The record is a 263-nucleotide sequence from Neopipo cinnamomea, which matches "Small Cajal body specific RNA 6" in Rfam.
Rfam links the family to the GO terms nucleolus and RNA processing.
The organism belongs to Neopipo, within Eukaryota.
On this family, see Darzacq et al., EMBO J 2002: "Cajal body-specific small nuclear RNAs: a novel class of 2'-O-methylation and pseudouridylation guide RNAs".
RNA sequence: GGUCUGUGAUGAAUAGUAAAAGGUCUGAUUAUCCCAAGACUUGCACUUCCAUGACCUUUUCUCCCAGCAGUUUCUCACCAGUCACAGCACAGUCAUGUUGUGGCUGGCAGAGUGUUUGCUGACAGCUUGAGAUGUGCUCAGUUCAUGUUAACCUGGAGUGUCGGAGACGUGACUGGGAUCAGCAUCCUACAGUCCUGCUUCAAGGAGUUUGGGGUCUUGGAUUGUUCUAACUGGGCACGUGAUCUGACUUUUGUGCUGAGACC
Numbered sequence: 001g002g003u004c005u006g007u008g009a010u011g012a013a014u015a016g017u018a019a020a021a022g023g024u025c026u027g028a029u030u031a032u033c034c035c036a037a038g039a040c041u042u043g044c045a046c047u048u049c050c051a052u053g054a055c056c057u058u059u060u061c062u063c064c065c066a067g068c069a070g071u072u073u074c075u076c077a078c079c080a081g082u083c084a085c086a087g088c089a090c091a092g093u094c095a096u097g098u099u100g101u102g103g104c105u106g107g108c109a110g111a112g113u114g115u116u117u118g119c120u121g122a123c124a125g126c127u128u129g130a131g132a133u134g135u136g137c138u139c140a141g142u143u144c145a146u147g148u149u150a151a152c153c154u155g156g157a158g159u160g161u162c163g164g165a166g167a168c169g170u171g172a173c174u175g176g177g178a179u180c181a182g183c184a185u186c187c188u189a190c191a192g193u194c195c196u197g198c199u200u201c202a203a204g205g206a207g208u209u210u211g212g213g214g215u216c217u218u219g220g221a222u223u224g225u226u227c228u229a230a231c232u233g234g235g236c237a238c239g240u241g242a243u244c245u246g247a248c249u250u251u252u253g254u255g256c257u258g259a260g261a262c263c
Stems, first nucleotide, its partner, number of pairs: 001263004037245003041241001048221004053216002061207004065121006078107009129187001131186005144171006152164002